RNA sequence: UGGUCAUAUACCAAGGCUUUUGGGAGUUGUAGUUCCUAAUUUGCUGUGGACAUGACCAGAAAUUAAACCCCAGUGGGCUGCUUCAGUUUUUUGCUGCUGUGGUCUGCUGGGAACAUUA
Numbered sequence: 001u002g003g004u005c006a007u008a009u010a011c012c013a014a015g016g017c018u019u020u021u022g023g024g025a026g027u028u029g030u031a032g033u034u035c036c037u038a039a040u041u042u043g044c045u046g047u048g049g050a051c052a053u054g055a056c057c058a059g060a061a062a063u064u065a066a067a068c069c070c071c072a073g074u075g076g077g078c079u080g081c082u083u084c085a086g087u088u089u090u091u092u093g094c095u096g097c098u099g100u101g102g103u104c105u106g107c108u109g110g111g112a113a114c115a116u117u118a
Stems, first nucleotide, its partner, number of pairs: 003056005011049003029044004069111004076104004084099003